A member of the RNA family "Group II catalytic intron D1-D4-3" from Methyloprofundus sedimenti, 182 nucleotides long. The base pairs follow the family's consensus structure. It scores 45 bits against the family's covariance model. Taxonomically the source falls in Methyloprofundus (Bacteria, Pseudomonadati, Pseudomonadota, Methylococcales).
[Rfam]
RNA sequence: UUGGGAGCCAAUGCGGAAUCUGAAGGAAGCUCUAGCCAAAUCGAUCACCUAAACGAAAGUGAACCUUCGUAAGGCGGCAACAAGGGGAUAAGGUGCCCGCGGCCACCGAAGUCCAAUAUUCUCACCGUAACGUGUUGUUGUAUUUGUAGUGGUCUAAUAAUCCUGUACUAAACGAUAGGAGU
Numbered sequence: 001u002u003g004g005g006a007g008c009c010a011a012u013g014c015g016g017a018a019u020c021u022g023a024a025g026g027a028a029g030c031u032c033u034a035g036c037c038a039a040a041u042c043g044a045u046c047a048c049c050u051a052a053a054c055g056a057a058a059g060u061g062a063a064c065c066u067u068c069g070u071a072a073g074g075c076g077g078c079a080a081c082a083a084g085g086g087g088a089u090a091a092g093g094u095g096c097c098c099g100c101g102g103c104c105a106c107c108g109a110a111g112u113c114c115a116a117u118a119u120u121c122u123c124a125c126c127g128u129a130a131c132g133u134g135u136u137g138u139u140g141u142a143u144u145u146g147u148a149g150u151g152g153u154c155u156a157a158u159a160a161u162c163c164u165g166u167a168c169u170a171a172a173c174g175a176u177a178g179g180a181g182u
Stems, first nucleotide, its partner, number of pairs: 001017002004014001006012001029182005037174001044166002049152003065149002068146002074141003078137005084131001086114004092107004